[Rfam]
RNA sequence: GCAUAGGACGACCUAUGCCGCUGCGCUUCAUCGGGGACGGCCCCA
Dot-bracket structure: (((((((....)))))))..............((((....)))).
The record is a 45-nucleotide RNA sequence from Mycoplana dimorpha, which matches "Guanidine-II riboswitch aptamer (mini-ykkC)" in Rfam. The organism belongs to Mycoplana, within Bacteria. Rfam 15.1 lists 1,589 matches to the family in 1,229 species.